[Rfam]
RNA sequence: UGCAGCCCUGUCAAAUUCAGUCCCUGCCUCUUCUGUGGUGGGGACUGGCCAGCCAGCUGCGCCAGCAACUUCUGUGGUCCGUGGGGUCCCAGGAAUAAAAUCACACCACAGACAUCG
Numbered sequence: 001u002g003c004a005g006c007c008c009u010g011u012c013a014a015a016u017u018c019a020g021u022c023c024c025u026g027c028c029u030c031u032u033c034u035g036u037g038g039u040g041g042g043g044a045c046u047g048g049c050c051a052g053c054c055a056g057c058u059g060c061g062c063c064a065g066c067a068a069c070u071u072c073u074g075u076g077g078u079c080c081g082u083g084g085g086g087u088c089c090c091a092g093g094a095a096u097a098a099a100a101u102c103a104c105a106c107c108a109c110a111g112a113c114a115u116c117g
Base pairs, nucleotide, nucleotide: 002060003059004058005057018047019046020045021044022043023042024041025040026039027038028037074109075108076107077106078105
The record is a 117-nucleotide RNA sequence from Pandion haliaetus, which matches "Small nucleolar RNA SNORA5" in Rfam. ACA5 is a member of the H/ACA class of snoRNA that guide the sites of modification of uridines to pseudouridines. Rfam 15.1 lists 2,226 matches to the family in 629 species. The base pairs follow the family's consensus structure, which was predicted with RNAfold. The family is grouped with related families in Rfam's "SNORA5 clan". The organism belongs to Pandion, within Eukaryota.